About this RNA: The record is a 58-nucleotide sequence from Molossus molossus, which matches "U7 small nuclear RNA" in Rfam. It scores 38 bits against the family's covariance model. Animal histone pre-mRNAs are spliced by a different mechanism than nuclear pre-mRNAs and self-splicing introns. This processing involves the U7 snRNP, which contains only one RNA species: U7. The 5' end of U7 RNA is thought to base-pair to a conserved spacer element downstream of the cleavage site in histone pre-mRNA. This family contains a number of annotated U7 pseudogenes. On this family, see Spycher et al., Nucleic Acids Res 1994: "3' end processing of mouse histone pre-mRNA: evidence for additional base-pairing between U7 snRNA and pre-mRNA".

RNA sequence: AAGUGCUAACAACUCUUUGAAUUUGUCUAAUAGGUCUGGUUUUCACUGGAAGGCCCAA
Numbered sequence: 001a002a003g004u005g006c007u008a009a010c011a012a013c014u015c016u017u018u019g020a021a022u023u024u025g026u027c028u029a030a031u032a033g034g035u036c037u038g039g040u041u042u043u044c045a046c047u048g049g050a051a052g053g054c055c056c057a058a
Base pairs, nucleotide, nucleotide: 033055034054035053036052037048038047039046040045